[Rfam]
RNA sequence: AACUAAGAUAGAGGCGCGAAAUUUAAGAGUAAUAUUACAGAGUUAAGCACAGUGAAGUAAUAUGAAAGGAAAUUUUGCCGAAGCUUAUAGUAAAUGCUUUAAUACUAUUUGCUGGGAUUACGCAAAAUAUGUGUAAUACUGUCAUAGGUUUUAUACCUAUGGAGGGCUAUUAUUCAG
Numbered sequence: 001a002a003c004u005a006a007g008a009u010a011g012a013g014g015c016g017c018g019a020a021a022u023u024u025a026a027g028a029g030u031a032a033u034a035u036u037a038c039a040g041a042g043u044u045a046a047g048c049a050c051a052g053u054g055a056a057g058u059a060a061u062a063u064g065a066a067a068g069g070a071a072a073u074u075u076u077g078c079c080g081a082a083g084c085u086u087a088u089a090g091u092a093a094a095u096g097c098u099u100u101a102a103u104a105c106u107a108u109u110u111g112c113u114g115g116g117a118u119u120a121c122g123c124a125a126a127a128u129a130u131g132u133g134u135a136a137u138a139c140u141g142u143c144a145u146a147g148g149u150u151u152u153a154u155a156c157c158u159a160u161g162g163a164g165g166g167c168u169a170u171u172a173u174u175c176a177g
Stems, first nucleotide, its partner, number of pairs: 007171005016078009032063007082113003087108006114140002117137008142162007